Shown here is a 49-nucleotide sequence from Zavarzinella formosa, a member of the family "DUF3800-VI RNA". It is annotated as a cis-regulatory element. Rfam's curators put it in the seed alignment. The source organism's lineage runs through Bacteria, Pseudomonadati, Planctomycetota, Zavarzinella and Zavarzinella formosa.
Nucleotides: 049
Stems, first nucleotide, its partner, number of pairs: 001048007009026005029041004
Number, partner (000 for none) and nucleotide at each position: 001048g002047g003046u004045u005044g006043g007042g008000a009026g010025g011024g012023c013022u014000g015000c016000a017000u018000g019000c020000g021000c022013g023012g024011u025010c026009c027000g028000c029041u030040g031039g032038c033000g034000a035000u036000a037000a038032g039031c040030c041029g042007c043006c044005c045004g046003g047002c048001u049000g